[Rfam]
RNA: MIR397 microRNA precursor family
RNA sequence: ACUCAAAACAUCAUUGAGUGCAGCGUUGAUUAAUCUCCGAUCCAACGGAGAUUCGUCAACGCUGCACUCAAUUAUGUUUUUG
Numbered sequence: 001a002c003u004c005a006a007a008a009c010a011u012c013a014u015u016g017a018g019u020g021c022a023g024c025g026u027u028g029a030u031u032a033a034u035c036u037c038c039g040a041u042c043c044a045a046c047g048g049a050g051a052u053u054c055g056u057c058a059a060c061g062c063u064g065c066a067c068u069c070a071a072u073u074a075u076g077u078u079u080u081u082g
Base pairs, nucleotide, nucleotide: 006079007078008077009076010075011074013072014071015070016069017068018067019066020065021064022063023062024061025060026059027058028057030055032053033052034051035050036049037048038047039046